[Rfam]
RNA sequence: CGUGCACCAGUGGGGUCCCUCAGCCUGGACUGUGCCUUCUCACAAUCCAGGACCCCUAGGGGGAUGUCGGAAAGCCGGUUUCAGCCUGAUCCUGCAGGCCAGGCUGAGGGAUCCCACUGGUGCACA
Numbered sequence: 001c002g003u004g005c006a007c008c009a010g011u012g013g014g015g016u017c018c019c020u021c022a023g024c025c026u027g028g029a030c031u032g033u034g035c036c037u038u039c040u041c042a043c044a045a046u047c048c049a050g051g052a053c054c055c056c057u058a059g060g061g062g063g064a065u066g067u068c069g070g071a072a073a074g075c076c077g078g079u080u081u082c083a084g085c086c087u088g089a090u091c092c093u094g095c096a097g098g099c100c101a102g103g104c105u106g107a108g109g110g111a112u113c114c115c116a117c118u119g120g121u122g123c124a125c126a
Stems, first nucleotide, its partner, number of pairs: 003124002006121001008119003012115014027100002030097005
RNA: mir-9193 microRNA precursor family
Organism: Myotis davidii